[Rfam]
RNA sequence: GCCUUAUCAAGAGUCAGGGUAGAGAGUUGGCUCGAUGACCCUGCACCAACCUGCAGCCAGGAGGCUGUAAGGUGGUAAAGCCAACAUCGAUAAGGA
Numbered sequence: 001g002c003c004u005u006a007u008c009a010a011g012a013g014u015c016a017g018g019g020u021a022g023a024g025a026g027u028u029g030g031c032u033c034g035a036u037g038a039c040c041c042u043g044c045a046c047c048a049a050c051c052u053g054c055a056g057c058c059a060g061g062a063g064g065c066u067g068u069a070a071g072g073u074g075g076u077a078a079a080g081c082c083a084a085c086a087u088c089g090a091u092a093a094g095g096a
Base pairs, nucleotide, nucleotide: 002095003094004093005092006091007090008089013044015043016042017041018040022033023032024031027084028083029082030081045076046075047074048073050072051071052069053068054067055066080088

The family of this 96-nucleotide RNA sequence from Caldicoprobacter faecalis is "SAM riboswitch aptamer (S box leader)". Lineage of the source: Bacteria > Bacillati > Clostridia > Caldicoprobacterales > Caldicoprobacter.